[Rfam]
RNA sequence: GUGUCCCCCACUGGAGAGAGGCGCUCACCAAGAGCGCCCACCGAAGGAGCAAAUGCGGCAUCGCCCGCGUGAAUCUCUCAGGUAAAGCGGACAGUGAGGCAGCC
Numbered sequence: 001g002u003g004u005c006c007c008c009c010a011c012u013g014g015a016g017a018g019a020g021g022c023g024c025u026c027a028c029c030a031a032g033a034g035c036g037c038c039c040a041c042c043g044a045a046g047g048a049g050c051a052a053a054u055g056c057g058g059c060a061u062c063g064c065c066c067g068c069g070u071g072a073a074u075c076u077c078u079c080a081g082g083u084a085a086a087g088c089g090g091a092c093a094g095u096g097a098g099g100c101a102g103c104c
Stems, first nucleotide, its partner, number of pairs: 006099002009096005020038006040083003043079002047077003053070006